The family of this 119-nucleotide sequence from Mycobacterium haemophilum is "Glycine riboswitch aptamer". This family represents the bacterial glycine riboswitch. Taxonomically the source falls in Mycobacterium (Bacteria, Bacillati, Actinomycetota, Mycobacteriales).
RNA sequence: GUGGCACCCUCUGGAGAUUCCAGCGGUCCACACCCGCCGAUGGGGAAAGGCGCUCGGACAGCACCCGGCGCCGAAUCUCUCAGGCGCCCGGGCGAACGGGUGAAGACAGAGGGAGGGGG
Number, nucleotide and partner (000 for none) at each position: 001g000002u000003g000004g000005c000006a000007c113008c112009c111010u110011c109012u108013g107014g000015a000016g000017a000018u000019u000020c000021c000022a000023g031024c000025g000026g000027u000028c000029c000030a000031c023032a000033c000034c000035c000036g085037c084038c083039g081040a080041u000042g000043g079044g078045g077046a000047a000048a000049g072050g071051c070052g069053c068054u067055c000056g000057g000058a000059c000060a000061g000062c000063a000064c000065c000066c000067g054068g053069c052070g051071c050072c049073g000074a000075a000076u000077c045078u044079c043080u040081c039082a000083g038084g037085c036086g000087c000088c000089c000090g000091g000092g000093c000094g000095a000096a000097c000098g000099g000100g000101u000102g000103a000104a000105g000106a000107c013108a012109g011110a010111g009112g008113g007114a000115g000116g000117g000118g000119g000
Rfam links the family to the GO term glycine biosynthetic process.